[Rfam]
RNA: Small nucleolar RNA SNORA27
RNA sequence: UAACCCUUAUUCACUUUGUCAAUUGGGCUUUUAUGUUUUCUGUGGUCAUGUGAUUGGGGCAAACUAACUAUCCUUUCUAAAUUCAGGAAACUGAGUAUUUGUAUUAUAAUCUGUCAGAGGAAAGAAAC
Numbered sequence: 001u002a003a004c005c006c007u008u009a010u011u012c013a014c015u016u017u018g019u020c021a022a023u024u025g026g027g028c029u030u031u032u033a034u035g036u037u038u039u040c041u042g043u044g045g046u047c048a049u050g051u052g053a054u055u056g057g058g059g060c061a062a063a064c065u066a067a068c069u070a071u072c073c074u075u076u077c078u079a080a081a082u083u084c085a086g087g088a089a090a091c092u093g094a095g096u097a098u099u100u101g102u103a104u105u106a107u108a109a110u111c112u113g114u115c116a117g118a119g120g121a122a123a124g125a126a127a128c
Base pairs, nucleotide, nucleotide: 034061035060036059037058038057043052044051071121072120073119074118075117076116085104086102088100089099090098